[Rfam]
RNA sequence: UACGAUCUUCAGGGCGAGGUGGAAUUCCUCACUGGCGGUAUCGGUUUUGUGAAUGAAUAGCUGUAGUUCAUGCAAACUUGAAGCCCGCGACCCUCUUUGAGUAAAGAGGCUGAUUUGGUUAAAGGCCAAAGCCAACGGUUAUAGUCCGGAUGAAAGAAGAUGCAA
Numbered sequence: 001u002a003c004g005a006u007c008u009u010c011a012g013g014g015c016g017a018g019g020u021g022g023a024a025u026u027c028c029u030c031a032c033u034g035g036c037g038g039u040a041u042c043g044g045u046u047u048u049g050u051g052a053a054u055g056a057a058u059a060g061c062u063g064u065a066g067u068u069c070a071u072g073c074a075a076a077c078u079u080g081a082a083g084c085c086c087g088c089g090a091c092c093c094u095c096u097u098u099g100a101g102u103a104a105a106g107a108g109g110c111u112g113a114u115u116u117g118g119u120u121a122a123a124g125g126c127c128a129a130a131g132c133c134a135a136c137g138g139u140u141a142u143a144g145u146c147c148g149g150a151u152g153a154a155a156g157a158a159g160a161u162g163c164a165a
Stems, first nucleotide, its partner, number of pairs: 005161006017029003031145002033134002035088004092109002114130005136148003
RNA: FMN riboswitch aptamer (RFN element)